RNA sequence: AUGGAUGGUCGGGCAGCCGCUCGCCAAGGCGAGAGGAAAGUCCGAACACCGACAAGCACUGUGCUUCCUAACGGGAAGUGCCGGGCAACCGGUAAGAAAGUGCCACAGAAAACAAACCGCCCCGGCGUUUAACGCCGGUGGCAAGGGUGAAAAGGCGAGGUAAGAGCUCACCGCUCCGAUGGUGACAUACGGAGGCACGGUAAACCUCACAGGGUGCAAGCUCAUGCAGGCAGUGCGUUGCUUGUCGCUAUACUGCCGGGUAGAGUGCGCAGGCUCUGGAGCAAUUCAGAGAUUAGAUAAAUGGUUGUCAUCCUGACUGCUGCAAUGGCAGACAGGAUACAGAAUUCGGCUUACAGACCAUCCCACGAU
Numbered sequence: 001a002u003g004g005a006u007g008g009u010c011g012g013g014c015a016g017c018c019g020c021u022c023g024c025c026a027a028g029g030c031g032a033g034a035g036g037a038a039a040g041u042c043c044g045a046a047c048a049c050c051g052a053c054a055a056g057c058a059c060u061g062u063g064c065u066u067c068c069u070a071a072c073g074g075g076a077a078g079u080g081c082c083g084g085g086c087a088a089c090c091g092g093u094a095a096g097a098a099a100g101u102g103c104c105a106c107a108g109a110a111a112a113c114a115a116a117c118c119g120c121c122c123c124g125g126c127g128u129u130u131a132a133c134g135c136c137g138g139u140g141g142c143a144a145g146g147g148u149g150a151a152a153a154g155g156c157g158a159g160g161u162a163a164g165a166g167c168u169c170a171c172c173g174c175u176c177c178g179a180u181g182g183u184g185a186c187a188u189a190c191g192g193a194g195g196c197a198c199g200g201u202a203a204a205c206c207u208c209a210c211a212g213g214g215u216g217c218a219a220g221c222u223c224a225u226g227c228a229g230g231c232a233g234u235g236c237g238u239u240g241c242u243u244g245u246c247g248c249u250a251u252a253c254u255g256c257c258g259g260g261u262a263g264a265g266u267g268c269g270c271a272g273g274c275u276c277u278g279g280a281g282c283a284a285u286u287c288a289g290a291g292a293u294u295a296g297a298u299a300a301a302u303g304g305u306u307g308u309c310a311u312c313c314u315g316a317c318u319g320c321u322g323c324a325a326u327g328g329c330a331g332a333c334a335g336g337a338u339a340c341a342g343a344a345u346u347c348g349g350c351u352u353a354c355a356g357a358c359c360a361u362c363c364c365a366c367g368a369u
Stems, first nucleotide, its partner, number of pairs: 003363008011354001012309007020033005038352003042349005047216004055245001059212005064078005079094001081092004095207002100205002102201003117146002119142003122138006154172002157169003173196001174194005179188003220266004229257006237251002240248002274291007
This 369-nucleotide sequence from Fodinibius sediminis belongs to the Rfam family "Bacterial RNase P class A". Its family is annotated with dimeric ribonuclease P complex, ribonuclease P activity and tRNA processing in the Gene Ontology. It is annotated as a ribozyme. The family's consensus secondary structure is taken from published work. A search with the family's covariance model found it, with a score of 256 bits.